[Rfam]
RNA sequence: UGGCGCCCAACGUGGCCGAGCACGGGGUGGGGGGGGGGGGGUGGAGGGGGGGACGGGACUCCGUGAGGAACACUGUUCAGAGAGCCGGCGAAAAAGAAACUGAAAGGAGGACGAGAUUAAACGGGAACCUGCCGUUUCUUCUGAACCUUGGUAAGUGAACAGCGAUUAUGGGACAAGAAAUAAGUCAACAUGAAAUGUUCGUAGCGGGACUAAAACAGGCUUUAAAGGCACGAGGGGUAAAGGUUUCUGUAAAACAAUUGUUAAAAUAUUUUGAGUAUGUUAAGGAUGUUUGUCCGU
Numbered sequence: 001u002g003g004c005g006c007c008c009a010a011c012g013u014g015g016c017c018g019a020g021c022a023c024g025g026g027g028u029g030g031g032g033g034g035g036g037g038g039g040g041g042u043g044g045a046g047g048g049g050g051g052g053a054c055g056g057g058a059c060u061c062c063g064u065g066a067g068g069a070a071c072a073c074u075g076u077u078c079a080g081a082g083a084g085c086c087g088g089c090g091a092a093a094a095a096g097a098a099a100c101u102g103a104a105a106g107g108a109g110g111a112c113g114a115g116a117u118u119a120a121a122c123g124g125g126a127a128c129c130u131g132c133c134g135u136u137u138c139u140u141c142u143g144a145a146c147c148u149u150g151g152u153a154a155g156u157g158a159a160c161a162g163c164g165a166u167u168a169u170g171g172g173a174c175a176a177g178a179a180a181u182a183a184g185u186c187a188a189c190a191u192g193a194a195a196u197g198u199u200c201g202u203a204g205c206g207g208g209a210c211u212a213a214a215a216c217a218g219g220c221u222u223u224a225a226a227g228g229c230a231c232g233a234g235g236g237g238u239a240a241a242g243g244u245u246u247c248u249g250u251a252a253a254a255c256a257a258u259u260g261u262u263a264a265a266a267u268a269u270u271u272u273g274a275g276u277a278u279g280u281u282a283a284g285g286a287u288g289u290u291u292g293u294c295c296g297u
Stems, first nucleotide, its partner, number of pairs: 006057003063073002105149003110146001115142001116140001120136005156175002160172001163170002181224003184220003231273005237267002241259002244256001246254001282297001284295004

The record is a 297-nucleotide RNA from Cnephaeus nilssonii, which matches "Mason-Pfizer monkey virus packaging signal" in Rfam. Rfam classes the family as a cis-regulatory element. A search with the family's covariance model found it, with a score of 114 bits.